A member of the RNA family "ACEA small nucleolar RNA U3" from Effrenium voratum, 163 nucleotides long. For this family Rfam cites "Comparative analysis of eukaryotic U3 snoRNA" (Marz and Stadler, RNA Biol, 2010). The match comes from Rfam's covariance-model search (65 bits). Clan: U3 clan. The family has 28 seed sequences and 2,156 matches in Rfam 15.1. It is annotated as a C/D-box small nucleolar RNA.

[Rfam]
RNA sequence: UCGACUGUACUUGCACAGGAUCACUUCUACAGUGACUCCUCUGCUCACACUCAGUCAAUUAGCGCGACUGCUUACCUCUGAGGAUGUAUAAUAGCUUCUGCUGCGAAGGAACUCUCCUUGCAGGUUUGAUGACAGCUUGCAGCAGAAGCAAGUCUGAAGAGGA
Numbered sequence: 001u002c003g004a005c006u007g008u009a010c011u012u013g014c015a016c017a018g019g020a021u022c023a024c025u026u027c028u029a030c031a032g033u034g035a036c037u038c039c040u041c042u043g044c045u046c047a048c049a050c051u052c053a054g055u056c057a058a059u060u061a062g063c064g065c066g067a068c069u070g071c072u073u074a075c076c077u078c079u080g081a082g083g084a085u086g087u088a089u090a091a092u093a094g095c096u097u098c099u100g101c102u103g104c105g106a107a108g109g110a111a112c113u114c115u116c117c118u119u120g121c122a123g124g125u126u127u128g129a130u131g132a133c134a135g136c137u138u139g140c141a142g143c144a145g146a147a148g149c150a151a152g153u154c155u156g157a158a159g160a161g162g163a
Base pairs, nucleotide, nucleotide: 003039006035008034009033010032011031017028018027019026020025045067046066048064050062051061053059075162076161077160078159079158094149095148096147097146098145100143101142102141103140104139105138106119107118108117109116120136121135123133
Rfam's curators write: Small nucleolar RNAs (snoRNAs) are involved in the processing and modification of rRNA in the nucleolus. There are two main classes of snoRNAs: the box C/D class, and the box H/ACA class. U3 snoRNA is a member of the box C/D class. Indeed, the box C/D element is a subset of the six short sequence elements found in all U3 snoRNAs, namely boxes A, A', B, C, C', and D. The U3 snoRNA secondary structure is characterised by a small 5' domain (with boxes A and A'), and a larger 3' domain (with boxes B, C, C', and D), the two domains being linked by a single-stranded hinge.